[Rfam]
RNA: drz-agam-1 ribozyme
Organism: Hermetia illucens
RNA sequence: UGCUACCAAACCCUAUCUCCACCUCUAGGUGGUAAUUGCUGGAAGUUCUUUCUUAAUGAAAAAAUGCAGACGGAGAAGG
Numbered sequence: 001u002g003c004u005a006c007c008a009a010a011c012c013c014u015a016u017c018u019c020c021a022c023c024u025c026u027a028g029g030u031g032g033u034a035a036u037u038g039c040u041g042g043a044a045g046u047u048c049u050u051u052c053u054u055a056a057u058g059a060a061a062a063a064a065u066g067c068a069g070a071c072g073g074a075g076a077a078g079g
Base pairs, nucleotide, nucleotide: 012079013078014077016075018073019072021033022032023031045065046064047063049061050060051059053058